This 130-nucleotide RNA sequence from Marmota monax belongs to the Rfam family "Small nucleolar RNA SNORA42/SNORA80 family".
[Rfam]
RNA sequence: GCAUAGGUUUGAAUUUAUGGCAGGCCUUUCCCGUCAGUCUCAUAGUGUCCCAUGCCAGAGCAAACUGGCCCCGAACCAUUGUCUGGCCUCUGAGUCUAAGGCUGCUGGCACUGAAAGGGGUUGCACAUUG
Dot-bracket structure: ((((.(((......((((((.(..(...........)).)))))).)))..))))..........((((((.....((...((((((((.........))))))..))...))....)))))).......
The match comes from Rfam's covariance-model search (96 bits). Rfam classes the family as an H/ACA-box small nucleolar RNA. The source organism's lineage runs through Eukaryota, Euteleostomi, Dipnotetrapodomorpha, Theria and Marmota. Rfam describes the family as follows. The members of this family belong to the H/ACA class of snoRNAs that guide the sites of modification of uridines to pseudouridines. Human ACA42 (SNORA42) was cloned from HeLa cells by immunoprecipitation with anti-GAR1 antibody. Its is predicted to guide the pseudouridylation of residues U109 and U572 of 18S rRNA. ACA42 shares the same host gene with ACA26, ACA46, ACA50.